[Rfam]
A member of the RNA family "ASpks TB sRNA" from Streptomyces naganishii, 78 nucleotides long. NCBI's taxonomy places the organism under Bacteria, Bacillati, Streptomycetaceae, Streptomyces, Streptomyces naganishii. The match comes from Rfam's covariance-model search (77 bits).
RNA sequence: CUUGAUGGAGCCGAGCCAGAGCGGCUGGUCGUCGGCGGCCCGCUCCUUGCCGUAGGUCGCGAGCAGCGCCUGCGCCUC
Numbered sequence: 001c002u003u004g005a006u007g008g009a010g011c012c013g014a015g016c017c018a019g020a021g022c023g024g025c026u027g028g029u030c031g032u033c034g035g036c037g038g039c040c041c042g043c044u045c046c047u048u049g050c051c052g053u054a055g056g057u058c059g060c061g062a063g064c065a066g067c068g069c070c071u072g073c074g075c076c077u078c
Base pairs, nucleotide, nucleotide: 014026015025016024017023035073036072041068042067046063047062048061050059052057